[Rfam]
Small nucleolar RNA SNORA55: a 128-nucleotide RNA from Salarias fasciatus. Rfam describes the family as follows. ACA55 is a member of the H/ACA class of snoRNA that guide the sites of modification of uridines to pseudouridines. The family's consensus secondary structure was predicted with PFOLD.
RNA sequence: GCACCACAGUACAACCCUGUCAAUCAUGUGUGUUUGAUGUGGGUCAAGUUGGUGCCAGAGAGAUUCAAUGUAAAUCCAGAUGGACCUCCUCUUCCCAUGGAGCCUGUCUCUACAACUUUGAUACAAAA
Numbered sequence: 001g002c003a004c005c006a007c008a009g010u011a012c013a014a015c016c017c018u019g020u021c022a023a024u025c026a027u028g029u030g031u032g033u034u035u036g037a038u039g040u041g042g043g044u045c046a047a048g049u050u051g052g053u054g055c056c057a058g059a060g061a062g063a064u065u066c067a068a069u070g071u072a073a074a075u076c077c078a079g080a081u082g083g084a085c086c087u088c089c090u091c092u093u094c095c096c097a098u099g100g101a102g103c104c105u106g107u108c109u110c111u112a113c114a115a116c117u118u119u120g121a122u123a124c125a126a127a128a
Stems, first nucleotide, its partner, number of pairs: 001055005014044004018039002021036002065121004070116001078109006085102001088100002